The record is a 375-nucleotide RNA from Tritonibacter litoralis, which matches "Alphaproteobacteria transfer-messenger RNA" in Rfam. Rfam classes the family as a non-coding RNA gene. A search with the family's covariance model found it, with a score of 302 bits. Rfam's curators write: Bacterial tmRNA, also known as 10Sa RNA or SsrA, is named for its dual tRNA and mRNA-like properties. Its role is to liberate the mRNA from a stalled ribosome. To accomplish this part of the tmRNA is used as a reading frame that ends in a translation stop signal. Lineage of the source: Bacteria > Pseudomonadati > Rhodobacterales > Paracoccaceae > Tritonibacter.

[Rfam]
RNA sequence: CCUCUUUAACUCCCCGUGCUCUCAGCCUAUAUUUGAUACGUUCCUUCGGGGACUAUGGACAUAAACGCGCUCGUAAUAAACGGAUCGGACCCGGGGGCGGUACCCGGCGGCUCCACCAAAUCACAAUGGCGACUUUCUUCGUUUGGGAAGGCUGUCAUGAUCUUGGGGCCGAAAUAGGAUCGACGGACGUCUAAAGGGGUUAGCUUUGUCUCGGCUGUCUGCCACCGUUAUCGGCGAAACUAGUACAAUUGCAAACGACAAUCGUGCUCCGGUUGCUCUGGCUGCGUAAGCAGUUCGAGUCGAACCGACUUUAAGCCCUUGCGCCUAGCCGCGUAAGGCGGGGUUCGCAGGUACCUGGCAACAGAAACCUGCACU
Numbered sequence: 001c002c003u004c005u006u007u008a009a010c011u012c013c014c015c016g017u018g019c020u021c022u023c024a025g026c027c028u029a030u031a032u033u034u035g036a037u038a039c040g041u042u043c044c045u046u047c048g049g050g051g052a053c054u055a056u057g058g059a060c061a062u063a064a065a066c067g068c069g070c071u072c073g074u075a076a077u078a079a080a081c082g083g084a085u086c087g088g089a090c091c092c093g094g095g096g097g098c099g100g101u102a103c104c105c106g107g108c109g110g111c112u113c114c115a116c117c118a119a120a121u122c123a124c125a126a127u128g129g130c131g132a133c134u135u136u137c138u139u140c141g142u143u144u145g146g147g148a149a150g151g152c153u154g155u156c157a158u159g160a161u162c163u164u165g166g167g168g169c170c171g172a173a174a175u176a177g178g179a180u181c182g183a184c185g186g187a188c189g190u191c192u193a194a195a196g197g198g199g200u201u202a203g204c205u206u207u208g209u210c211u212c213g214g215c216u217g218u219c220u221g222c223c224a225c226c227g228u229u230a231u232c233g234g235c236g237a238a239a240c241u242a243g244u245a246c247a248a249u250u251g252c253a254a255a256c257g258a259c260a261a262u263c264g265u266g267c268u269c270c271g272g273u274u275g276c277u278c279u280g281g282c283u284g285c286g287u288a289a290g291c292a293g294u295u296c297g298a299g300u301c302g303a304a305c306c307g308a309c310u311u312u313a314a315g316c317c318c319u320u321g322c323g324c325c326u327a328g329c330c331g332c333g334u335a336a337g338g339c340g341g342g343g344u345u346c347g348c349a350g351g352u353a354c355c356u357g358g359c360a361a362c363a364g365a366a367a368c369c370u371g372c373a374c375u
Stems, first nucleotide, its partner, number of pairs: 040053005057211005067204002069200004081189002085186003091107005108171007212227003218237002221235003341356004347372006